The family of this 264-nucleotide part of an RNA from Suillus discolor is "Eukaryotic large subunit ribosomal RNA".
RNA sequence: CGCUUGAUGUCAGUCGCGUCGACCGGGGAUCAGUCUCGCUUAAUCGCUGGACGUACUUCCUGGCCGACGGGUCAGCAUCGGUUUCGACCGUCGGAAAAUGGCUCGAGGAACGUGGCACCUCUUGGGGUGUGUUAUAGACUCGGGUCGAAUACGACGUUUGGGACCGAGGGACUCAGCACGACCUUAGGGUUCGGGGCUUCGGCCCACGUUAACGUGCUUAGGAUGCUGGCAUAAUGGCCUUAAGCGACCCGUCUUGAAACACGG
Numbered sequence: 001c002g003c004u005u006g007a008u009g010u011c012a013g014u015c016g017c018g019u020c021g022a023c024c025g026g027g028g029a030u031c032a033g034u035c036u037c038g039c040u041u042a043a044u045c046g047c048u049g050g051a052c053g054u055a056c057u058u059c060c061u062g063g064c065c066g067a068c069g070g071g072u073c074a075g076c077a078u079c080g081g082u083u084u085c086g087a088c089c090g091u092c093g094g095a096a097a098a099u100g101g102c103u104c105g106a107g108g109a110a111c112g113u114g115g116c117a118c119c120u121c122u123u124g125g126g127g128u129g130u131g132u133u134a135u136a137g138a139c140u141c142g143g144g145u146c147g148a149a150u151a152c153g154a155c156g157u158u159u160g161g162g163a164c165c166g167a168g169g170g171a172c173u174c175a176g177c178a179c180g181a182c183c184u185u186a187g188g189g190u191u192c193g194g195g196g197c198u199u200c201g202g203c204c205c206a207c208g209u210u211a212a213c214g215u216g217c218u219u220a221g222g223a224u225g226c227u228g229g230c231a232u233a234a235u236g237g238c239c240u241u242a243a244g245c246g247a248c249c250c251g252u253c254u255u256g257a258a259a260c261a262c263g264g
Stems, first nucleotide, its partner, number of pairs: 001246007009238004017069005023063002073228007249264004
NCBI's taxonomy places the organism under Eukaryota, Dikarya, Basidiomycota, Suillineae, Suillus.